A member of the RNA family "sodF sRNA" from Streptomyces uncialis, 90 nucleotides long. Its family is annotated with negative regulation of translation, mRNA binding and regulation of mRNA stability in the Gene Ontology. The family has 6 seed sequences and 336 matches in Rfam 15.1. Rfam classes the family as a small RNA. On this family, see Kim et al., Nucleic Acids Res 2014: "Inverse regulation of Fe- and Ni-containing SOD genes by a Fur family regulator Nur through small RNA processed from 3'UTR of the sodF mRNA".
RNA sequence: AGAUCCUGCUCGUGAUCGUCUUCUCACCGAUCCACCGGGCAGGUGAAGUAACGGAAGGUCCCGCGAGGACAUGACUCGCGGGGCCUUCCG
Numbered sequence: 001a002g003a004u005c006c007u008g009c010u011c012g013u014g015a016u017c018g019u020c021u022u023c024u025c026a027c028c029g030a031u032c033c034a035c036c037g038g039g040c041a042g043g044u045g046a047a048g049u050a051a052c053g054g055a056a057g058g059u060c061c062c063g064c065g066a067g068g069a070c071a072u073g074a075c076u077c078g079c080g081g082g083g084c085c086u087u088c089c090g
Stems, first nucleotide, its partner, number of pairs: 001044001005043007012035003015031001018028001052090016